Notes
Small nucleolar RNA SNORA32: a 122-nucleotide sequence from Python bivittatus.
RNA sequence: UGGUCUCUACCAAGGCUGCUAGAAAAAUCUCAUUUCUGGUAUGCUGUGGACGUGACCACAUAGUAACUCCUCUAGAUUUUUACAUUGCUGCCAUGGUAGCAACAAAUCUGUUGGGAACAUUA
Numbered sequence: 001u002g003g004u005c006u007c008u009a010c011c012a013a014g015g016c017u018g019c020u021a022g023a024a025a026a027a028u029c030u031c032a033u034u035u036c037u038g039g040u041a042u043g044c045u046g047u048g049g050a051c052g053u054g055a056c057c058a059c060a061u062a063g064u065a066a067c068u069c070c071u072c073u074a075g076a077u078u079u080u081u082a083c084a085u086u087g088c089u090g091c092c093a094u095g096g097u098a099g100c101a102a103c104a105a106a107u108c109u110g111u112u113g114g115g116a117a118c119a120u121u122a
Base pairs, nucleotide, nucleotide: 003056004055005054007052010049011048012047070115071114072113075108076107077106078105086101087100088099
Notes:
Lineage of the source: Eukaryota > Opisthokonta > Chordata > Sauria > Python. About the family: ACA32 is a member of the H/ACA class of snoRNA that guide the sites of modification of uridines to pseudouridines. Gene Ontology terms of the family: RNA processing and nucleolus. The base pairs follow the family's consensus structure, which was predicted with RNAfold.